[Rfam]
RNA sequence: AAUUGAAAAAUCAAUAGAUUUAAACCUAGUGAAGAGCAUUUGAACAAUGUGCUAGGGUAGUAUGGGAUAAGUCGAUAACUAAAAUGAAUUGGGAUACUGAUUGAUUUUAGUGGUGGAUUUUACAGCAAUGUAAAAAGGACUAAUAGUAAAAGCUAUUAAUCGCAAAGUACUACGUGGAAUUUGUGCAGGUGUAAGGUACGAAACUUUCGAGUGUGACAAUAGACGCUCCAGUGGAGAAUAAUCUAAGUUAGGUGGAAGUGUGAGAAGCUUGGCAGACCUUAGAAAACUCAAACCAAGCGCUUUGCAGAGAAACUGAGAAAUCAGUGUUUAACGAAAGAAGUCGGUACGAGUAGCUUAAUGCAGCAAUUUAUUUACAGAUGACAAAUAAUAAAAAUGGGACUCUUAUGUAAAUGCUGAAUGUUCAAGUGAAAGUUAUUAGCCAGUAGAGCUAGAUCAUACAGAAAAAGCAAAGAGAAGCUAUUGGGUAGCGCCCGAUAGUUCAGCCUCUUUGGGUAUGUGACUGAAUAACACUGUAAACAAAGGAAGCAGGAAGAAAAGCCUAAAUCUGUUGAUUUUUGAG
Numbered sequence: 001a002a003u004u005g006a007a008a009a010a011u012c013a014a015u016a017g018a019u020u021u022a023a024a025c026c027u028a029g030u031g032a033a034g035a036g037c038a039u040u041u042g043a044a045c046a047a048u049g050u051g052c053u054a055g056g057g058u059a060g061u062a063u064g065g066g067a068u069a070a071g072u073c074g075a076u077a078a079c080u081a082a083a084a085u086g087a088a089u090u091g092g093g094a095u096a097c098u099g100a101u102u103g104a105u106u107u108u109a110g111u112g113g114u115g116g117a118u119u120u121u122a123c124a125g126c127a128a129u130g131u132a133a134a135a136a137g138g139a140c141u142a143a144u145a146g147u148a149a150a151a152g153c154u155a156u157u158a159a160u161c162g163c164a165a166a167g168u169a170c171u172a173c174g175u176g177g178a179a180u181u182u183g184u185g186c187a188g189g190u191g192u193a194a195g196g197u198a199c200g201a202a203a204c205u206u207u208c209g210a211g212u213g214u215g216a217c218a219a220u221a222g223a224c225g226c227u228c229c230a231g232u233g234g235a236g237a238a239u240a241a242u243c244u245a246a247g248u249u250a251g252g253u254g255g256a257a258g259u260g261u262g263a264g265a266a267g268c269u270u271g272g273c274a275g276a277c278c279u280u281a282g283a284a285a286a287c288u289c290a291a292a293c294c295a296a297g298c299g300c301u302u303u304g305c306a307g308a309g310a311a312a313c314u315g316a317g318a319a320a321u322c323a324g325u326g327u328u329u330a331a332c333g334a335a336a337g338a339a340g341u342c343g344g345u346a347c348g349a350g351u352a353g354c355u356u357a358a359u360g361c362a363g364c365a366a367u368u369u370a371u372u373u374a375c376a377g378a379u380g381a382c383a384a385a386u387a388a389u390a391a392a393a394a395u396g397g398g399a400c401u402c403u404u405a406u407g408u409a410a411a412u413g414c415u416g417a418a419u420g421u422u423c424a425a426g427u428g429a430a431a432g433u434u435a436u437u438a439g440c441c442a443g444u445a446g447a448g449c450u451a452g453a454u455c456a457u458a459c460a461g462a463a464a465a466a467g468c469a470a471a472g473a474g475a476a477g478c479u480a481u482u483g484g485g486u487a488g489c490g491c492c493c494g495a496u497a498g499u500u501c502a503g504c505c506u507c508u509u510u511g512g513g514u515a516u517g518u519g520a521c522u523g524a525a526u527a528a529c530a531c532u533g534u535a536a537a538c539a540a541a542g543g544a545a546g547c548a549g550g551a552a553g554a555a556a557a558g559c560c561u562a563a564a565u566c567u568g569u570u571g572a573u574u575u576u577u578g579a580g
Base pairs, nucleotide, nucleotide: 007577008576009575010574014570017567020564021563025056026055027054028053029052036050037049038048039047040046059171060170061169062168063167077114079112080109081108082107084105085104087102088101089100090099091098092097119134120133121132122131123130124129142157143156144155145154146153181541182540189532196522199343200342201341204337205336206335207334208333209332210301211300212299213298214297226236227235228234229233242283243282244281245280246279247278252273253272255270257269258268259267261290262289263288264287302363303362304361305360306359312325313324314323315322316321347432353427354426355425356424358422413504414503415502416501437453456516457515458514468512470510471509472508474506477500479497480496481495482494483493484492485491549560550559
RNA: ROOL RNA
Organism: Enterococcus faecalis